RNA: Bacterial RNase P class A
Organism: Streptomyces taklimakanensis
RNA sequence: CGAGUCGUGCGGGCGGUCGCGGCGGAAUCCCUCCGGGGUGAACGUCGAGGAACGUCCGGGCUCCACAGGGCAGGGUGGUGGGUAACGCCCACCCGGGGUGACCCGCGGGAAAGUGCCACAGAAAACAGACCGCCGGGGGCCUCACCGCCCCCGGUAAGGGUGAAACGGUGGUGUAAGAGACCACCAGCGCCCAGGGUGACCUGGGCGGCUCGGUAAACCCCACCCGGAGCAAGGUCAAGAGGGGUUGCCGUCCCGGCAGGGACGGCGGCUCUGCGCGGAUGAUCGAGGGCGGCCCGCCCGAGUCCGCGGGUAGACCGCACGAGGCCGGUGGCGACACCGGUCCCAGAUGGAUGACCGCCUCCCGGCGGGCCGCGAGGCCCACCGGAGACAGAACCCGGCGUACAGCGCGACUCGUCUG
Dot-bracket structure: ((((((((((((((((((.(((((..................)))))....[[[.[[[[[((((...[[[[.((((((((((.....)))))(((((....)))).)((...(((((............(((((((((((......)))))))))..)).......((((((.......)))))).(((((((((....)))))))).)..)))..)))))))))))))...((((..................................................((((.]]]])))).............))))......((((((((....))))))))..........)))))))..................................]]]]]]]].).))))))))))....